[Rfam]
A member of the RNA family "mir-399 microRNA precursor family" from Zingiber officinale, 122 nucleotides long. Its family is annotated with RISC complex and miRNA-mediated post-transcriptional gene silencing in the Gene Ontology. Pairs were carried over by alignment from the consensus structure, which was predicted with PFOLD. It scores 60 bits against the family's covariance model. For this family Rfam cites "Computational Identification of Plant MicroRNAs and Their Targets, Including a Stress-Induced miRNA" (Jones-Rhoades and Bartel, Mol Cell, 2004). Lineage of the source: Eukaryota > Streptophytina > Tracheophyta > Petrosaviidae > Zingiber.
Nucleotides: 122
Stems, first nucleotide, its partner, number of pairs: 005118004011112003015108003019104001021102004027096005033090003
Number, partner (000 for none) and nucleotide at each position: 001000a002000g003000g004000u005118g006117a007116a008115u009000g010000g011112c012111a013110g014000g015108g016107c017106a018000a019104u020000u021102c022101u023100c024099c025000u026000u027096u028095g029094g030093c031092a032000u033090g034089a035088a036000a037000a038000g039000c040000a041000a042000a043000u044000u045000u046000a047000a048000a049000g050000g051000c052000c053000a054000c055000c056000a057000c058000c059000u060000a061000a062000u063000u064000a065000u066000u067000a068000a069000u070000u071000c072000a073000c074000c075000a076000g077000u078000u079000c080000a081000c082000u083000u084000c085000g086000c087000c088035u089034u090033c091000c092031u093030g094029c095028c096027a097000a098000a099024g100023g101022a102021g103000a104019a105000c106017u107016g108015c109000a110013c111012u112011g113000u114000g115008a116007u117006u118005c119000u120000c121000a122000a